[Rfam]
RNA sequence: GAGGGCCAGUUGAAGCAGGCAUGUCUUCAUUCCUGAUUUCCUGAUGGCAUGAAACACAUGGCCUGUUCCUAUUGGCACCUU
Number, nucleotide and partner (000 for none) at each position: 001g000002a080003g079004g078005g076006c075007c074008a073009g072010u071011u000012g069013a000014a067015g066016c065017a064018g063019g062020c061021a059022u058023g057024u056025c000026u053027u052028c051029a050030u049031u000032c047033c046034u000035g000036a000037u000038u000039u000040c000041c000042u000043g000044a000045u000046g033047g032048c000049a030050u029051g028052a027053a026054a000055c000056a024057c023058a022059u021060g000061g020062c019063c018064u017065g016066u015067u014068c000069c012070u000071a010072u009073u008074g007075g006076c005077a000078c004079c003080u002081u000
The record is an 81-nucleotide RNA sequence from Lymphocryptovirus macacinegamma4, which matches "mir-BART20 microRNA precursor family" in Rfam. The source organism's lineage runs through Viruses, Duplodnaviria, Peploviricota, Orthoherpesviridae and Lymphocryptovirus macacinegamma4.